[Rfam]
RNA: pemK RNA
Organism: Vagococcus elongatus
RNA sequence: AUAAUGAUACUUCCGUAAGGCUCGCCGUAAACUUGGGGAGAGGUGAAAGUCCUAUGA
Numbered sequence: 001a002u003a004a005u006g007a008u009a010c011u012u013c014c015g016u017a018a019g020g021c022u023c024g025c026c027g028u029a030a031a032c033u034u035g036g037g038g039a040g041a042g043g044u045g046a047a048a049g050u051c052c053u054a055u056g057a
Stems, first nucleotide, its partner, number of pairs: 012054001013020002021040003025036003041053003